This 107-nucleotide RNA from Mycobacterium helveticum belongs to the Rfam family "Mycobacterium sRNA ncrMT1302". Rfam classes the family as a small RNA. For this family Rfam cites "A screen for non-coding RNA in Mycobacterium tuberculosis reveals a cAMP-responsive RNA that is expressed during infection" (Pelly et al., Gene, 2012). The base pairs follow the family's consensus structure, which was predicted with WAR. Lineage of the source: Bacteria > Actinomycetota > Mycobacteriales > Mycobacteriaceae > Mycobacterium.
[Rfam]
RNA sequence: AAGCGACCAAAUCAAAGAGCCGGACGUCGGGGUAUACAGCCGGCCGCGUAGCACCCGCGCAUGACGGAGUUGCACGCCCCCAGCGUCGCCCGGGCCUGCCCAUGCGG
Numbered sequence: 001a002a003g004c005g006a007c008c009a010a011a012u013c014a015a016a017g018a019g020c021c022g023g024a025c026g027u028c029g030g031g032g033u034a035u036a037c038a039g040c041c042g043g044c045c046g047c048g049u050a051g052c053a054c055c056c057g058c059g060c061a062u063g064a065c066g067g068a069g070u071u072g073c074a075c076g077c078c079c080c081c082a083g084c085g086u087c088g089c090c091c092g093g094g095c096c097u098g099c100c101c102a103u104g105c106g107g
Base pairs, nucleotide, nucleotide: 003089004088005087006086007085020043021042022041023040046077047076048075049074055067056066057065092101093100094099